[Rfam]
RNA sequence: UGUCGGCCUACUGCACCGGGAACGUGUUCCCACCGCAGCGCCGAGGGGGAGGAGCCUCGUCAGCAGCGGCCUGUGGCCGGAAAGGCGAAACAUACAGCGUUGGGUGGAGCUUGGUAGGUUUCCGCAGGGAUUCUCGAAGAGGUCAGGCCCG
Number, nucleotide and partner (000 for none) at each position: 001u000002g000003u044004c043005g042006g041007c040008c000009u000010a000011c038012u037013g036014c035015a000016c000017c000018g031019g030020g029021a028022a027023c000024g000025u000026g000027u022028u021029c020030c019031c018032a000033c000034c000035g014036c013037a012038g011039c000040g007041c006042c005043g004044a003045g000046g056047g055048g000049g000050a000051g000052g000053a000054g000055c047056c046057u088058c087059g086060u085061c084062a000063g000064c000065a000066g000067c079068g078069g077070c076071c075072u000073g000074u000075g071076g070077c069078c068079g067080g000081a000082a000083a000084g061085g060086c059087g058088a057089a000090a000091c000092a000093u000094a000095c000096a000097g000098c000099g000100u000101u151102g150103g149104g148105u147106g000107g144108a143109g000110c141111u140112u139113g000114g000115u000116a000117g134118g133119u000120u000121u130122c129123c128124g000125c000126a000127g000128g123129g122130a121131u000132u000133c118134u117135c000136g000137a000138a000139g112140a111141g110142g000143u108144c107145a000146g000147g105148c104149c103150c102151g101

RT-3 RNA: a 151-nucleotide RNA.
The base pairs follow the family's consensus structure, which is taken from published work.
The sequence is in the family's curated seed alignment.